Shown here is a 133-nucleotide RNA sequence from Cyclopterus lumpus, a member of the family "Small nucleolar RNA SNORA69".
U69 is a member of the H/ACA class of small nucleolar RNAs (snoRNAs) which act as guides in the the modification of uridines to pseudouridines.
Pairs were carried over by alignment from the consensus structure, which was predicted with PFOLD.
Rfam classes the family as an H/ACA-box small nucleolar RNA.
The family has 16 seed sequences and 808 matches in Rfam 15.1.
Gene Ontology terms of the family: nucleolus and RNA processing.
[Rfam]
RNA sequence: AAAGCAGGUCUGCAAUUGCAGCACUCCAUUGCCGUAGAGUGUUGCCAUUAAUCCUGCUGAGAGCAUCUUUCUGCUACAGUGCAUAUUCCUGCUCACUGUGGUGGUGAUGAGGAAGCUCUGUAGCUGAACAUUA
Number, nucleotide and partner (000 for none) at each position: 001a000002a000003a058004g057005c056006a055007g054008g053009u000010c000011u000012g000013c000014a000015a000016u000017u000018g000019c044020a043021g042022c041023a040024c039025u038026c037027c000028a000029u000030u000031g000032c000033c000034g000035u000036a000037g026038a025039g024040u023041g022042u021043u020044g019045c000046c000047a000048u000049u000050a000051a000052u000053c008054c007055u006056g005057c004058u003059g000060a000061g000062a000063g000064c000065a000066u000067c000068u000069u000070u127071c126072u000073g124074c123075u122076a121077c120078a119079g118080u000081g000082c000083a000084u000085a000086u111087u110088c109089c000090u107091g000092c000093u104094c103095a102096c101097u000098g000099u000100g000101g096102u095103g094104g093105u000106g000107a090108u000109g088110a087111g086112g000113a000114a000115g000116c000117u000118c079119u078120g077121u076122a075123g074124c073125u000126g071127a070128a000129c000130a000131u000132u000133a000